Shown here is a 47-nucleotide RNA sequence, a member of the family "L17-Actino-Proteobacteria ribosomal protein leader". Rfam classes the family as a cis-regulatory leader. A reference for the family is Eckert and Weinberg (2020), "Discovery of 20 novel ribosomal leader candidates in bacteria and archaea", BMC Microbiol. The match comes from Rfam's covariance-model search (35 bits).

RNA sequence: CGGGAUGGGACCCCCCGCCCCGCCGCCCCCGGUACCUGCCGGAGCGG
Numbered sequence: 001c002g003g004g005a006u007g008g009g010a011c012c013c014c015c016c017g018c019c020c021c022g023c024c025g026c027c028c029c030c031g032g033u034a035c036c037u038g039c040c041g042g043a044g045c046g047g
Stems, first nucleotide, its partner, number of pairs: 001022004006017004023047003027044001029042005